[Rfam]
RNA sequence: GCAUGUAGUGCCGAAGGCGUAGAAAUUCCGGACGCGGGUUCAAAUCCCGCCAGCUCCACCAAAAUUCUCUAAUCGGUGAUUACCAGAGUCAUCAGAUGAAGUCCUAAGAGCCGGCAUGGCACAAGCCCUGCGGGCUUUUUUGUGUCUGUCGUCGCCCUGUCAACAGGUUUUAGAGGAAAGCUUUUCUUCCCCGAGGUUAACUGUAUAAUAUUGACCACUAUGACAAAGAAAAAAGCACACAAACCCGGUUCAGCUACCAUUGCGCAAAACAAACGCGCCCGACAUGAAUACUCUAUAGAACAGGAGUUCGAGGCCGGACUCUCGCUGCAGGGAUGGGAAGUGAAAUCGCUACGCGCUGGUAAAGCGAACAUCAGCGAUAGCUAUGUGCUGCUUAAAGACGGCGAGGCCUAUCUUUUUGGCGCCACCUUCCAACCGUUGACGGUGGCUUCUUCGCAUGUGGUCUGUGACCCGAUGCGAACCCGCAAGCUUUUGCUUAAUAAGCGUGAACUGGAUUCACUGUUCGGCCGUGUAAACAGCGAAGGCUACACCACUGUGGCGCUCUCACUGUAUUGGAAAGACGCGUGGGUGAAAGUGAAAAUCGGCGUGGCGAAGGGUAAAAAAGAGUACGAUAAACGAGCGGAUAUCAAGGAACGCGAAUGGCAGUUGGAUAAGGCGCGCAUUAUGCAUGCACGCUAGUCGAUAGCAUUGCCCUGUCACUGUAAGUUUGCUAUAAUCAAAUGAACAGCUUGGGGCUGAUUCUUGGACUCGACGGGAUUUGCGAAACCUAAGGUGCAUGCCGAGGGGGGGUUGGCCUCGUAAAAAAACCUCAAAAAAAAUAAUUGCAAACGACCCGCAAUUCGAAUCUAACGUUGCUUUAGCAGCUUAA
Numbered sequence: 001g002c003a004u005g006u007a008g009u010g011c012c013g014a015a016g017g018c019g020u021a022g023a024a025a026u027u028c029c030g031g032a033c034g035c036g037g038g039u040u041c042a043a044a045u046c047c048c049g050c051c052a053g054c055u056c057c058a059c060c061a062a063a064a065u066u067c068u069c070u071a072a073u074c075g076g077u078g079a080u081u082a083c084c085a086g087a088g089u090c091a092u093c094a095g096a097u098g099a100a101g102u103c104c105u106a107a108g109a110g111c112c113g114g115c116a117u118g119g120c121a122c123a124a125g126c127c128c129u130g131c132g133g134g135c136u137u138u139u140u141u142g143u144g145u146c147u148g149u150c151g152u153c154g155c156c157c158u159g160u161c162a163a164c165a166g167g168u169u170u171u172a173g174a175g176g177a178a179a180g181c182u183u184u185u186c187u188u189c190c191c192c193g194a195g196g197u198u199a200a201c202u203g204u205a206u207a208a209u210a211u212u213g214a215c216c217a218c219u220a221u222g223a224c225a226a227a228g229a230a231a232a233a234a235g236c237a238c239a240c241a242a243a244c245c246c247g248g249u250u251c252a253g254c255u256a257c258c259a260u261u262g263c264g265c266a267a268a269a270c271a272a273a274c275g276c277g278c279c280c281g282a283c284a285u286g287a288a289u290a291c292u293c294u295a296u297a298g299a300a301c302a303g304g305a306g307u308u309c310g311a312g313g314c315c316g317g318a319c320u321c322u323c324g325c326u327g328c329a330g331g332g333a334u335g336g337g338a339a340g341u342g343a344a345a346u347c348g349c350u351a352c353g354c355g356c357u358g359g360u361a362a363a364g365c366g367a368a369c370a371u372c373a374g375c376g377a378u379a380g381c382u383a384u385g386u387g388c389u390g391c392u393u394a395a396a397g398a399c400g401g402c403g404a405g406g407c408c409u410a411u412c413u414u415u416u417u418g419g420c421g422c423c424a425c426c427u428u429c430c431a432a433c434c435g436u437u438g439a440c441g442g443u444g445g446c447u448u449c450u451u452c453g454c455a456u457g458u459g460g461u462c463u464g465u466g467a468c469c470c471g472a473u474g475c476g477a478a479c480c481c482g483c484a485a486g487c488u489u490u491u492g493c494u495u496a497a498u499a500a501g502c503g504u505g506a507a508c509u510g511g512a513u514u515c516a517c518u519g520u521u522c523g524g525c526c527g528u529g530u531a532a533a534c535a536g537c538g539a540a541g542g543c544u545a546c547a548c549c550a551c552u553g554u555g556g557c558g559c560u561c562u563c564a565c566u567g568u569a570u571u572g573g574a575a576a577g578a579c580g581c582g583u584g585g586g587u588g589a590a591a592g593u594g595a596a597a598a599u600c601g602g603c604g605u606g607g608c609g610a611a612g613g614g615u616a617a618a619a620a621a622g623a624g625u626a627c628g629a630u631a632a633a634c635g636a637g638c639g640g641a642u643a644u645c646a647a648g649g650a651a652c653g654c655g656a657a658u659g660g661c662a663g664u665u666g667g668a669u670a671a672g673g674c675g676c677g678c679a680u681u682a683u684g685c686a687u688g689c690a691c692g693c694u695a696g697u698c699g700a701u702a703g704c705a706u707u708g709c710c711c712u713g714u715c716a717c718u719g720u721a722a723g724u725u726u727g728c729u730a731u732a733a734u735c736a737a738a739u740g741a742a743c744a745g746c747u748u749g750g751g752g753c754u755g756a757u758u759c760u761u762g763g764a765c766u767c768g769a770c771g772g773g774a775u776u777u778g779c780g781a782a783a784c785c786u787a788a789g790g791u792g793c794a795u796g797c798c799g800a801g802g803g804g805g806g807g808u809u810g811g812c813c814u815c816g817u818a819a820a821a822a823a824a825c826c827u828c829a830a831a832a833a834a835a836a837u838a839a840u841u842g843c844a845a846a847c848g849a850c851c852c853g854c855a856a857u858u859c860g861a862a863u864c865u866a867a868c869g870u871u872g873c874u875u876u877a878g879c880a881g882c883u884u885a886a
Base pairs, nucleotide, nucleotide: 001797002796003795004794005793015786016785017784024776025775026774028772029771030770034050035049036048037047038046051755052754053753054752055751056750057749798816799815800814801813
RNA: permuted transfer-messenger RNA
Organism: Sodalis-like symbiont of Philaenus spumarius